[Rfam]
RNA sequence: UGAUCCCCCGCGGGAGAGUUCGAAUCGGCCGCAAGGCCGGUUCGACGCCGAAGGCGCAACCGCCCCGGAAACGCUCAGGCCCGAAGGACCGCGUGGGAGCU
Numbered sequence: 001u002g003a004u005c006c007c008c009c010g011c012g013g014g015a016g017a018g019u020u021c022g023a024a025u026c027g028g029c030c031g032c033a034a035g036g037c038c039g040g041u042u043c044g045a046c047g048c049c050g051a052a053g054g055c056g057c058a059a060c061c062g063c064c065c066c067g068g069a070a071a072c073g074c075u076c077a078g079g080c081c082c083g084a085a086g087g088a089c090c091g092c093g094u095g096g097g098a099g100c101u
Stems, first nucleotide, its partner, number of pairs: 006096002009093005020045011047080003050076002054074003060068002
RNA: Glycine riboswitch aptamer
Organism: Enterovirga aerilata